About this RNA
This 105-nucleotide RNA sequence from Oceanimonas doudoroffii belongs to the Rfam family "traJ-II RNA". Rfam classes the family as a cis-regulatory element. Pairs were carried over by alignment from the consensus structure, which is taken from published work. Lineage of the source: Bacteria > Pseudomonadati > Pseudomonadota > Gammaproteobacteria > Oceanimonas.

RNA sequence: GGGCAGGAUGUGUGAAGUAGUCCCACCAUGCAAGCAUGACGGAGCCUCUUCACUGGCCCUUAUUCGCACCUGCGGUGCUCAAUGUUCAUCCUGCCCUGCGGGGCU
Numbered sequence: 001g002g003g004c005a006g007g008a009u010g011u012g013u014g015a016a017g018u019a020g021u022c023c024c025a026c027c028a029u030g031c032a033a034g035c036a037u038g039a040c041g042g043a044g045c046c047u048c049u050u051c052a053c054u055g056g057c058c059c060u061u062a063u064u065c066g067c068a069c070c071u072g073c074g075g076u077g078c079u080c081a082a083u084g085u086u087c088a089u090c091c092u093g094c095c096c097u098g099c100g101g102g103g104c105u
Stems, first nucleotide, its partner, number of pairs: 001096009012053006020045002024041001027038002030035001056087001059084001066078005